[Rfam]
RNA sequence: CGUGGAGACGCGCCUAAUCCCCGCAACUCGGGGAGCCGGGGACCCGCCGGCGGCCAGCACCGCCAAUGGGGUGAGUCCGAGCACGCGCUCGGUAGGGCUGCUCCGGCCCGAACCCGUCAGCUAACCCGGUAGGCGGCAACGAGAGGAGCC
Numbered sequence: 001c002g003u004g005g006a007g008a009c010g011c012g013c014c015u016a017a018u019c020c021c022c023g024c025a026a027c028u029c030g031g032g033g034a035g036c037c038g039g040g041g042a043c044c045c046g047c048c049g050g051c052g053g054c055c056a057g058c059a060c061c062g063c064c065a066a067u068g069g070g071g072u073g074a075g076u077c078c079g080a081g082c083a084c085g086c087g088c089u090c091g092g093u094a095g096g097g098c099u100g101c102u103c104c105g106g107c108c109c110g111a112a113c114c115c116g117u118c119a120g121c122u123a124a125c126c127c128g129g130u131a132g133g134c135g136g137c138a139a140c141g142a143g144a145g146g147a148g149c150c
Stems, first nucleotide, its partner, number of pairs: 011135004018034006035130006045068002069115003077092004095109004
The record is a 150-nucleotide RNA sequence from Nonomuraea dietziae, which matches "c-di-AMP riboswitch aptamer (ydaO/yuaA leader)" in Rfam. Taxonomically the source falls in Nonomuraea (Bacteria, Bacillati, Actinomycetes, Streptosporangiaceae). A search with the family's covariance model found it, with a score of 76 bits.